Rfam assigns this 105-nucleotide sequence from Amphibacillus marinus to the family "SAM riboswitch aptamer (S box leader)".
[Rfam]
RNA sequence: GACUUAUCAAGAGUGAUGGAGGGAUUGGCCCGAUGAAAUCCGGCAACCAUUAAACAAUGUUUAAACGGUGCUAAAGCCAGCAGAUUAAUUUCUGCACGAUAAGAA
Numbered sequence: 001g002a003c004u005u006a007u008c009a010a011g012a013g014u015g016a017u018g019g020a021g022g023g024a025u026u027g028g029c030c031c032g033a034u035g036a037a038a039u040c041c042g043g044c045a046a047c048c049a050u051u052a053a054a055c056a057a058u059g060u061u062u063a064a065a066c067g068g069u070g071c072u073a074a075a076g077c078c079a080g081c082a083g084a085u086u087a088a089u090u091u092c093u094g095c096a097c098g099a100u101a102a103g104a105a
Stems, first nucleotide, its partner, number of pairs: 003103006013041001015040003021031003025080004042072004047068002050064004076097001081094004

Rfam links the family to the GO term regulation of gene expression.